[Rfam]
RNA sequence: GCGCAUGUCUGAAAACUUGUAACCUAAGCUACGAACAGGGAGCCUCGUUUCACAAUCAUUGCUUAGGGGAAAGUCCCCGGACAUUGGACAGAGAUGUUCUGCAUACAGCGCAGAGCGACUUCGGUAGUGUGUUAUAAUGCUAAGACGUUUUUGUGACAGAGCACAACGCUUGCAAUCCACAUUUGUCAAUAUCACAGAUAUUCAAGUGAAGCACACACGUGCUGCUACAGAACGGGGCUCAUUCUCAGCAUUCG
Numbered sequence: 001g002c003g004c005a006u007g008u009c010u011g012a013a014a015a016c017u018u019g020u021a022a023c024c025u026a027a028g029c030u031a032c033g034a035a036c037a038g039g040g041a042g043c044c045u046c047g048u049u050u051c052a053c054a055a056u057c058a059u060u061g062c063u064u065a066g067g068g069g070a071a072a073g074u075c076c077c078c079g080g081a082c083a084u085u086g087g088a089c090a091g092a093g094a095u096g097u098u099c100u101g102c103a104u105a106c107a108g109c110g111c112a113g114a115g116c117g118a119c120u121u122c123g124g125u126a127g128u129g130u131g132u133u134a135u136a137a138u139g140c141u142a143a144g145a146c147g148u149u150u151u152u153g154u155g156a157c158a159g160a161g162c163a164c165a166a167c168g169c170u171u172g173c174a175a176u177c178c179a180c181a182u183u184u185g186u187c188a189a190u191a192u193c194a195c196a197g198a199u200a201u202u203c204a205a206g207u208g209a210a211g212c213a214c215a216c217a218c219g220u221g222c223u224g225c226u227a228c229a230g231a232a233c234g235g236g237g238c239u240c241a242u243u244c245u246c247a248g249c250a251u252u253c254g
Base pairs, nucleotide, nucleotide: 002254003253005251006250009248010247011246012245015207016206017205018204019203023067024066025065026064027063028062029061038053040051041050042049072239073238075237076236077235078234087098088097089096090095099113100112101111102110104108115180117178121172138163139162140161147157148156149155210223211222212221213220214219